RNA: Burkholderia RNA 7 (anti-hemB)
RNA sequence: UCUCCCGCUUUCCUCCCUGAGCGGGAAGCCUUAUCCCAAUGAGGCUUAAAUGCUUAACCCCGAUUUUACUCCCCUUUAAUCGGGGUUUUUUU
Dot-bracket structure: ...((((((..........))))))..(((((((....)))))))............((((((((............)))))))).......